[Rfam]
RNA sequence: UGACUCCUCCAUGUCUUGGAGUAGGUCAUUGGGUGGAUCCUCUGUUUCCUCAAAUGGGCCACUGGAUGGCUCCUCCAUGUCUUGGAG
Dot-bracket structure: ........(((.(.(.(((((..(((((((.(((((.(((...............)))))))).))))))).))))).).).)))..